[Rfam]
RNA: L2-Alphaproteobacteria ribosomal protein leader
RNA sequence: GGGCACCUUCGGGGGCCUACAACCAUGGUGGGUUAAACCCCCACCCUACAUAGCGGGCCUUCGGGCGCGCGUUUGCAAACGGAAGACAGAAA
Dot-bracket structure: ((((.(((...))))))).........(((.(((.............................))).)))......................